A member of the RNA family "PyrR binding site" from Lactobacillus pasteurii, 112 nucleotides long. NCBI's taxonomy places the organism under Bacteria, Lactobacillales, Lactobacillaceae, Lactobacillus, Lactobacillus pasteurii. About the family: This family represents the PyrR binding site and terminator structure. This RNA structure is found upstream of a variety of genes involved in pyrimidine biosynthesis and transport. The alignment also includes a portion of the antiterminator structure. A search with the family's covariance model found it, with a score of 63 bits. The family's consensus secondary structure is taken from published work.
[Rfam]
RNA sequence: AUGACCUUUAAGAUUAGUCCCGUGAGGCUAAGAAGGAAAUCUGAAUAGCGUAUUUUUGUCAUACGUCAAACAGAAGACCAUCUUAGACCCGGUGUCUAGGAUGGUCUUUUUU
Numbered sequence: 001a002u003g004a005c006c007u008u009u010a011a012g013a014u015u016a017g018u019c020c021c022g023u024g025a026g027g028c029u030a031a032g033a034a035g036g037a038a039a040u041c042u043g044a045a046u047a048g049c050g051u052a053u054u055u056u057u058g059u060c061a062u063a064c065g066u067c068a069a070a071c072a073g074a075a076g077a078c079c080a081u082c083u084u085a086g087a088c089c090c091g092g093u094g095u096c097u098a099g100g101a102u103g104g105u106c107u108u109u110u111u112u
Base pairs, nucleotide, nucleotide: 005036006035007034008033009032014031015030016029017028018027019026040074041073042072043071046068048066049065050064051063052062053061075107076106077105078104079103080102081101082100083099084098085097086096087095088094